[Rfam]
RNA sequence: UGAGAGAACGAUGUUGAAGGAACUAGGCAAAUUACUCUCGUAACUUCGGAAUAAGAGAGCCUCGCCCGUGGGCAACCACAGGUGAGGGGCACAGACUAGGGGGUGGCGACUGUUUAUUAAAAACACAGGGCUCUGCGAAGUCGCAAGACGACGUAUAGGGUCUGACGCCUGCCCGGUGCCGGAAGGUCAAGAGGAGGGGUGCAAGCUCCGAAUUGAAGCCCCGGUAAACGGCGGCCGUAACUAUAACGGUCCUAAGGUAGCGAAAUUCCUUGUCGGGUAAGUUCCGACCUGCACGAAUGGCGUAACGACUUCCCCGCUGUCUCCAACAUCGACUCA
Numbered sequence: 001u002g003a004g005a006g007a008a009c010g011a012u013g014u015u016g017a018a019g020g021a022a023c024u025a026g027g028c029a030a031a032u033u034a035c036u037c038u039c040g041u042a043a044c045u046u047c048g049g050a051a052u053a054a055g056a057g058a059g060c061c062u063c064g065c066c067c068g069u070g071g072g073c074a075a076c077c078a079c080a081g082g083u084g085a086g087g088g089g090c091a092c093a094g095a096c097u098a099g100g101g102g103g104u105g106g107c108g109a110c111u112g113u114u115u116a117u118u119a120a121a122a123a124c125a126c127a128g129g130g131c132u133c134u135g136c137g138a139a140g141u142c143g144c145a146a147g148a149c150g151a152c153g154u155a156u157a158g159g160g161u162c163u164g165a166c167g168c169c170u171g172c173c174c175g176g177u178g179c180c181g182g183a184a185g186g187u188c189a190a191g192a193g194g195a196g197g198g199g200u201g202c203a204a205g206c207u208c209c210g211a212a213u214u215g216a217a218g219c220c221c222c223g224g225u226a227a228a229c230g231g232c233g234g235c236c237g238u239a240a241c242u243a244u245a246a247c248g249g250u251c252c253u254a255a256g257g258u259a260g261c262g263a264a265a266u267u268c269c270u271u272g273u274c275g276g277g278u279a280a281g282u283u284c285c286g287a288c289c290u291g292c293a294c295g296a297a298u299g300g301c302g303u304a305a306c307g308a309c310u311u312c313c314c315c316g317c318u319g320u321c322u323c324c325a326a327c328a329u330c331g332a333c334u335c336a
Base pairs, nucleotide, nucleotide: 001336002335003334004333009331010330011329012328013327014326015325016324018322019321020320035059036058037057038056039055044049060087061086062085063084064083065082066081068079069078070077071076088092100315101314102313103312105310106309107307108306111125112124113123128163129162130161131160132159133158134157135156136153140149141148142147166302167301168300169299171232172231173230176229177228178225179224180223181222182221185220186219187218191214192213196209197208198207199206200205233251234250235249236248237247238246252256262289272288273287274286275285276284277283

A member of the RNA family "Bacterial large subunit ribosomal RNA" from Haematospirillum jordaniae, 336 nucleotides of a longer RNA.